[Rfam]
Overview:
Rfam assigns this 76-nucleotide RNA from Acipenser ruthenus to the family "mir-1 microRNA precursor family". Gene Ontology terms of the family: miRNA-mediated post-transcriptional gene silencing and RISC complex. Rfam's curators write: This family represents the microRNA (miRNA) mir-1 family. miRNAs are transcribed as ~70nt precursors (modelled here) and subsequently processed by the Dicer enzyme to give a ~22nt product. In this case the mature sequence comes from the 3' arm of the precursor. The extents of the hairpin precursors are not generally known and are estimated based on hairpin prediction. The base pairs follow the family's consensus structure, which was predicted with RNAalifold. A reference for the family is Lee and Ambros (2001), "An extensive class of small RNAs in Caenorhabditis elegans", Science. It scores 72 bits against the family's covariance model.
RNA sequence: CCUGAGAUUACAUGCUUCCUUAUAUCCCCAUAUGAAUUAGCCCGUUAUGGAAUGUAAGGAAGUGUGUGGUUUCAGG
Numbered sequence: 001c002c003u004g005a006g007a008u009u010a011c012a013u014g015c016u017u018c019c020u021u022a023u024a025u026c027c028c029c030a031u032a033u034g035a036a037u038u039a040g041c042c043c044g045u046u047a048u049g050g051a052a053u054g055u056a057a058g059g060a061a062g063u064g065u066g067u068g069g070u071u072u073c074a075g076g
Stems, first nucleotide, its partner, number of pairs: 007070019028050005